[Rfam]
RNA sequence: CGCAUGGGGGCUGCGAUCCCCUCACGAGGCGCCAUGCCCAAGAGUCGCGUCCUGUUUUCCCAAGAGGACGCCGCAUG
Numbered sequence: 001c002g003c004a005u006g007g008g009g010g011c012u013g014c015g016a017u018c019c020c021c022u023c024a025c026g027a028g029g030c031g032c033c034a035u036g037c038c039c040a041a042g043a044g045u046c047g048c049g050u051c052c053u054g055u056u057u058u059c060c061c062a063a064g065a066g067g068a069c070g071c072c073g074c075a076u077g
Stems, first nucleotide, its partner, number of pairs: 005024006047071006